[Rfam]
RNA: Small nucleolar RNA SNORA72
RNA sequence: CUGAAAUAUUCUUGCUGUUCUAAUUUUGUAAUAAUCAGGGCAGGCUAGACAUUCACUAUAUUAAGACUAUGCAUACUUCUCCAGAUCUACUUUUUUCCCUAGGUCUGUUUUUUUAAAUGCUGGUGAUAAAC
Numbered sequence: 001c002u003g004a005a006a007u008a009u010u011c012u013u014g015c016u017g018u019u020c021u022a023a024u025u026u027u028g029u030a031a032u033a034a035u036c037a038g039g040g041c042a043g044g045c046u047a048g049a050c051a052u053u054c055a056c057u058a059u060a061u062u063a064a065g066a067c068u069a070u071g072c073a074u075a076c077u078u079c080u081c082c083a084g085a086u087c088u089a090c091u092u093u094u095u096u097c098c099c100u101a102g103g104u105c106u107g108u109u110u111u112u113u114u115a116a117a118u119g120c121u122g123g124u125g126a127u128a129a130a131c
Stems, first nucleotide, its partner, number of pairs: 003056001015043007023035003066124004071120002082107008